A member of the RNA family "Bacterial small subunit ribosomal RNA" from Polynucleobacter victoriensis, 561 nucleotides of a longer RNA. It scores 1560 bits against the family's covariance model.

[Rfam]
RNA sequence: AAACUGAAGAGUUUGAUCCUGGCUCAGAUUGAACGCUGGCGGCAUGCCUUACACAUGCAAGUCGAACGGCAGCACGGGUGCUUGCACCUGGUGGCGAGUGGCGAACGGGUGAGUAAUAUAUCGGAACGUACCUUAUUGUGGGGGAUAACGCAGCGAAAGCUGUGCUAAUACCGCAUAAUCCCUAAGGGGGAAAGCGGGGGACCGUAAGGCCUCGCGCAAUUAGAGCGGCCGAUACCUGAUUAGCUAGUUGGUGAGGUAAAGGCUCACCAAGGCAACGAUCAGUAGCUGGUCUGAGAGGACGAUCAGCCACACUGGGACUGAGACACGGCCCAGACUCCUACGGGAGGCAGCAGUGGGGAAUUUUGGACAAUGGGGGCAACCCUGAUCCAGCAAUGCCGCGUGAGUGAAGAAGGCCUUCGGGUUGUAAAGCUCUUUUGUCAGGGAAGAAACAGCAGCUCUAACACAGUUUGCGAAUGACGGUACCUGAAGAAUAAGCACCGGCUAACUACGUGCCAGCAGCCGCGGUAAUACGUAGGGUGCAAGCGUUAAUCGGAAUUACUG
Number, nucleotide and partner (000 for none) at each position: 001a000002a000003a000004c000005u000006g000007a000008a000009g025010a024011g023012u022013u021014u000015g000016a000017u000018c000019c000020u000021g013022g012023c011024u010025c009026a000027g551028a550029u549030u548031g000032a547033a546034c545035g544036c543037u542038g000039g399040c398041g397042g396043c395044a394045u392046g391047c357048c000049u000050u000051a000052c355053a354054c353055a000056u352057g351058c350059a000060a000061g102062u101063c100064g000065a000066a099067c098068g000069g095070c094071a000072g000073c000074a000075c090076g089077g088078g087079u086080g085081c000082u000083u000084g000085c080086a079087c078088c077089u076090g075091g000092u000093g000094g070095c069096g000097a000098g067099u066100g063101g062102c061103g000104a000105a000106c000107g000108g000109g310110u309111g308112a000113g000114u000115a000116a000117u000118a000119u234120a233121u232122c231123g230124g229125a000126a000127c227128g226129u000130a000131c000132c223133u222134u000135a220136u219137u218138g217139u000140g174141g000142g172143g171144g000145a000146u000147a000148a000149c164150g163151c162152a161153g160154c159155g000156a000157a000158a000159g154160c153161u152162g151163u150164g149165c000166u000167a000168a000169u000170a000171c143172c142173g000174c140175a000176u000177a000178a000179u000180c189181c188182c187183u000184a000185a000186g000187g182188g181189g180190g000191a000192a000193a000194g215195c214196g213197g212198g211199g210200g000201a000202c000203c000204g000205u000206a000207a000208g000209g000210c199211c198212u197213c196214g195215c194216g000217c138218a137219a136220u135221u000222a133223g132224a000225g000226c128227g127228g000229c124230c123231g122232a121233u120234a119235c000236c282237u281238g280239a000240u000241u000242a000243g273244c272245u271246a000247g000248u270249u269250g268251g267252u266253g265254a264255g263256g000257u000258a000259a000260a000261g000262g000263c255264u254265c253266a252267c251268c250269a249270a248271g245272g244273c243274a000275a000276c000277g000278a000279u000280c238281a237282g236283u000284a000285g307286c306287u305288g304289g300290u299291c298292u297293g000294a000295g000296a000297g292298g291299a290300c289301g000302a000303u000304c288305a287306g286307c285308c111309a110310c109311a000312c333313u332314g331315g330316g329317a000318c000319u000320g000321a000322g000323a000324c000325a000326c000327g000328g000329c316330c315331c314332a313333g312334a000335c346336u345337c344338c343339u000340a000341c000342g000343g338344g337345a336346g335347g000348c000349a000350g058351c057352a056353g054354u053355g052356g000357g047358g000359a000360a000361u000362u000363u389364u000365g388366g387367a386368c000369a000370a000371u384372g383373g382374g381375g380376g000377c000378a000379a000380c375381c374382c373383u372384g371385a000386u367387c366388c365389a363390g000391c046392a045393a000394u044395g043396c042397c041398g040399c039400g000401u000402g432403a431404g430405u429406g000407a000408a000409g000410a000411a000412g423413g422414c421415c420416u000417u000418c000419g000420g415421g414422u413423u412424g000425u000426a000427a000428a000429g405430c404431u403432c402433u000434u000435u000436u000437g000438u487439c486440a485441g484442g483443g000444a000445a000446g478447a000448a000449a000450c000451a000452g471453c470454a469455g000456c000457u000458c000459u000460a000461a000462c000463a000464c000465a000466g000467u000468u000469u454470g453471c452472g000473a000474a000475u000476g000477a000478c446479g000480g000481u000482a000483c442484c441485u440486g439487a438488a000489g000490a000491a000492u000493a000494a000495g540496c539497a538498c537499c536500g000501g000502c000503u000504a000505a000506c535507u534508a533509c532510g531511u000512g000513c000514c000515a000516g523517c522518a000519g000520c000521c000522g517523c516524g000525g000526u000527a000528a000529u000530a000531c510532g509533u508534a507535g506536g499537g498538u497539g496540c495541a000542a037543g036544c035545g034546u033547u032548a030549a029550u028551c027552g000553g000554a000555a000556u000557u000558a000559c000560u000561g000